The record is a 63-nucleotide RNA from Pseudomonas sp. MRSN 12121, which matches "gabT RNA" in Rfam.

RNA sequence: UGUGGCCGGGAACCCUGUGGCAGUCGAUCAUCGCAUGCUGCCGCCGUUCGUCUCCCCGCCGCG
Numbered sequence: 001u002g003u004g005g006c007c008g009g010g011a012a013c014c015c016u017g018u019g020g021c022a023g024u025c026g027a028u029c030a031u032c033g034c035a036u037g038c039u040g041c042c043g044c045c046g047u048u049c050g051u052c053u054c055c056c057c058g059c060c061g062c063g
Base pairs, nucleotide, nucleotide: 001063002062003061004060005059006058015046017044018043019042020041021040022039023038024037025033026032

A search with the family's covariance model found it, with a score of 53 bits. By type it is a cis-regulatory element. The base pairs follow the family's consensus structure, which is taken from published work. The organism belongs to Pseudomonas, within Bacteria.